[Rfam]
RNA sequence: UGGGAAGGGGGCACGGUCGCGGGCGGUUGCGCCUGAGGAAAGUCCGGGCACCACAGGGCAGGAUGCCAGCUAACGGCUGGGCGGGGUAACCCGACGGAAAGUGCAACAGAAAGCAGACCGCCGGGCUCACCGCUACGCGAUGGGUCCGGUAAGGGUGAAACGGUGCGGUAAGAGCGCACCAGUCCCUCUGGUAACAGGGGGAGCUAGGCAAACCCCAUCCGGUGCAAGUCCCGUAAGCCCAGCAGGGAGGGUUGGCCCGACCCGAAGGCACCGCUGGCAGGGACGCUUGAGGUGGCUGGUGACAGCCAUCCCAGAGAGAUGACCGUGGAAAACAGAACCCGGCUUACACCCCUUCCCACCCU
Numbered sequence: 001u002g003g004g005a006a007g008g009g010g011g012c013a014c015g016g017u018c019g020c021g022g023g024c025g026g027u028u029g030c031g032c033c034u035g036a037g038g039a040a041a042g043u044c045c046g047g048g049c050a051c052c053a054c055a056g057g058g059c060a061g062g063a064u065g066c067c068a069g070c071u072a073a074c075g076g077c078u079g080g081g082c083g084g085g086g087u088a089a090c091c092c093g094a095c096g097g098a099a100a101g102u103g104c105a106a107c108a109g110a111a112a113g114c115a116g117a118c119c120g121c122c123g124g125g126c127u128c129a130c131c132g133c134u135a136c137g138c139g140a141u142g143g144g145u146c147c148g149g150u151a152a153g154g155g156u157g158a159a160a161c162g163g164u165g166c167g168g169u170a171a172g173a174g175c176g177c178a179c180c181a182g183u184c185c186c187u188c189u190g191g192u193a194a195c196a197g198g199g200g201g202a203g204c205u206a207g208g209c210a211a212a213c214c215c216c217a218u219c220c221g222g223u224g225c226a227a228g229u230c231c232c233g234u235a236a237g238c239c240c241a242g243c244a245g246g247g248a249g250g251g252u253u254g255g256c257c258c259g260a261c262c263c264g265a266a267g268g269c270a271c272c273g274c275u276g277g278c279a280g281g282g283a284c285g286c287u288u289g290a291g292g293u294g295g296c297u298g299g300u301g302a303c304a305g306c307c308a309u310c311c312c313a314g315a316g317a318g319a320u321g322a323c324c325g326u327g328g329a330a331a332a333c334a335g336a337a338c339c340c341g342g343c344u345u346a347c348a349c350c351c352c353u354u355c356c357c358a359c360c361c362u
Stems, first nucleotide, its partner, number of pairs: 001358010011347001012327007020035006040345003044342005049224004056258004061220005066080005081095001082093004096215002101213002103209002118154002120150009162180006182204001183202008228284004240273001242271001249263005291310008
Dot-bracket structure: ((((((((((((((((((.((((((....))))))....[[[.[[[[[((((...[[[[.((((((((((.....)))))(((((....)))).)((...((((.............(((((((((((.............)))))))))..)).......((((((.......)))))).(((((((((....)))))))).)...))..)))))))))))))...((((........(.(......(((((.]]]]))))).......).).......))))......((((((((....))))))))..........)))))))..........]]]]]]]].).))))))))))....